[Rfam]
RNA sequence: GGCGGUCUUCGGUAGUGGCUGCCGGUGACCUCACGGUUUCCGGCCGCUUCGAUCGACGGCCGUG
Numbered sequence: 001g002g003c004g005g006u007c008u009u010c011g012g013u014a015g016u017g018g019c020u021g022c023c024g025g026u027g028a029c030c031u032c033a034c035g036g037u038u039u040c041c042g043g044c045c046g047c048u049u050c051g052a053u054c055g056a057c058g059g060c061c062g063u064g
Base pairs, nucleotide, nucleotide: 002063003062004061005060006059007058009056010055011054012053013052017048018047019046021044022043023042024041025040027038028037029036